[Rfam]
RNA sequence: UGGUAGAUGCACCCUGAUUCAAAACCAAUGGUUCGCCAUUGGUUUUUUUU
Number, nucleotide and partner (000 for none) at each position: 001u000002g013003g012004u011005a000006g000007a000008u000009g000010c000011a004012c003013c002014c000015u000016g000017a000018u000019u000020c000021a000022a000023a000024a000025c042026c041027a040028a039029u038030g037031g036032u000033u000034c000035g000036c031037c030038a029039u028040u027041g026042g025043u000044u000045u000046u000047u000048u000049u000050u000
RNA: Nitrogen stress-induced RNA 1